[Rfam]
RNA sequence: UUUACUCGUCGAUCCAAGUAAAUCUCGUGCGGCUUUUGCAUUCAAAGCCGUUCGAGAUUUACUUAAAUCGAUGGUAAA
Number, nucleotide and partner (000 for none) at each position: 001u000002u000003u000004a000005c000006u074007c073008g072009u071010c070011g069012a068013u067014c000015c000016a064017a063018g062019u061020a060021a059022a058023u057024c056025u055026c054027g053028u000029g051030c050031g049032g048033c047034u046035u045036u000037u000038g000039c000040a000041u000042u000043c000044a000045a035046a034047g033048c032049c031050g030051u029052u000053c027054g026055a025056g024057a023058u022059u021060u020061a019062c018063u017064u016065a000066a000067a013068u012069c011070g010071a009072u008073g007074g006075u000076a000077a000078a000

A member of the RNA family "mir-2767 microRNA precursor family" from Manduca sexta, 78 nucleotides long. The family has 4 seed sequences and 18 matches in Rfam 15.1. NCBI's taxonomy places the organism under Eukaryota, Bilateria, Panorpida, Obtectomera, Manduca. Pairs were carried over by alignment from the consensus structure, which was predicted with RNAalifold.